[Rfam]
A member of the RNA family "ATPC RNA motif" from Paulinella micropora, 88 nucleotides long.
Taxonomically the source falls in Paulinella (Eukaryota, Sar, Imbricatea, Silicofilosea).
The family's consensus secondary structure is taken from published work.

RNA sequence: UUUUCUUGACAGGCGAUCUGCUAAACCUGCGGUGCGUAGGUCCGGGUGGAACCGGGCCCACUCUUUUGACAAGAGUGUCCUGGGCGCA
Numbered sequence: 001u002u003u004u005c006u007u008g009a010c011a012g013g014c015g016a017u018c019u020g021c022u023a024a025a026c027c028u029g030c031g032g033u034g035c036g037u038a039g040g041u042c043c044g045g046g047u048g049g050a051a052c053c054g055g056g057c058c059c060a061c062u063c064u065u066u067u068g069a070c071a072a073g074a075g076u077g078u079c080c081u082g083g084g085c086g087c088a
Base pairs, nucleotide, nucleotide: 001015003013004012033088034087035086036085037084039058040057041056042055043054044053045052059077060076061075062074063073064072065071